[Rfam]
RNA sequence: AACCGCACUUGUCAAAUUGGGAAACUCAUCAAGUGUUUUGUGUUUACCGAGAUGUUGUUGGCAACAAUGGCGGGCCGCUGGUACACCUUGUGUGCACGAGACGGAUUACAAAAGUGCCGACACGCUUUAAUCCUGAUUAUAGGAGUUUUCACAAUUCACAGUGCGGUUUUGUCU
Number, nucleotide and partner (000 for none) at each position: 001a000002a000003c000004c000005g000006c000007a000008c000009u000010u000011g000012u000013c000014a000015a000016a000017u000018u000019g000020g000021g000022a000023a000024a000025c000026u000027c000028a000029u000030c000031a000032a000033g000034u000035g000036u000037u000038u000039u000040g000041u000042g000043u000044u000045u000046a000047c000048c000049g000050a000051g000052a000053u000054g123055u122056u000057g000058u120059u119060g118061g117062c116063a115064a000065c000066a000067a000068u110069g109070g000071c000072g000073g000074g000075c104076c103077g102078c000079u000080g087081g086082u000083a000084c000085a000086c081087c080088u000089u098090g097091u096092g000093u000094g000095c000096a091097c090098g089099a000100g000101a000102c077103g076104g075105a000106u000107u000108a000109c069110a068111a000112a000113a000114g000115u063116g062117c061118c060119g059120a058121c000122a055123c054124g000125c000126u000127u000128u000129a000130a000131u000132c000133c000134u000135g000136a000137u000138u000139a000140u000141a000142g000143g000144a000145g000146u000147u000148u000149u000150c000151a000152c000153a000154a000155u000156u000157c000158a000159c000160a000161g000162u000163g000164c000165g000166g000167u000168u000169u000170u000171g000172u000173c000174u000